A member of the RNA family "Lysine riboswitch aptamer" from Staphylococcus simulans, 176 nucleotides long. A search with the family's covariance model found it, with a score of 114 bits. The organism belongs to Staphylococcus, within Bacteria. Rfam links the family to the GO term lysine biosynthetic process.
RNA sequence: AAAAGUGUUAGAGGUUGCAUCUUUGAUGAGUUGCUUAUCAGAAGCUUUAUUGGAGCGUAGGUUGAAUAAGUUAAAGGCAAAGAUGCCGAAAUUUACAAUAGCCAUAACUAUUGUAUUUUGGGUCAGUUUCCGAAUAGGAACUGAACUGUCACAUAAUGUGAUGUGCUACCGUAUAU
Numbered sequence: 001a002a003a004a005g006u007g008u009u010a011g012a013g014g015u016u017g018c019a020u021c022u023u024u025g026a027u028g029a030g031u032u033g034c035u036u037a038u039c040a041g042a043a044g045c046u047u048u049a050u051u052g053g054a055g056c057g058u059a060g061g062u063u064g065a066a067u068a069a070g071u072u073a074a075a076g077g078c079a080a081a082g083a084u085g086c087c088g089a090a091a092u093u094u095a096c097a098a099u100a101g102c103c104a105u106a107a108c109u110a111u112u113g114u115a116u117u118u119u120g121g122g123u124c125a126g127u128u129u130c131c132g133a134a135u136a137g138g139a140a141c142u143g144a145a146c147u148g149u150c151a152c153a154u155a156a157u158g159u160g161a162u163g164u165g166c167u168a169c170c171g172u173a174u175a176u
Stems, first nucleotide, its partner, number of pairs: 006171002009168003017086009033071006090119002094115008120147002123144008149161005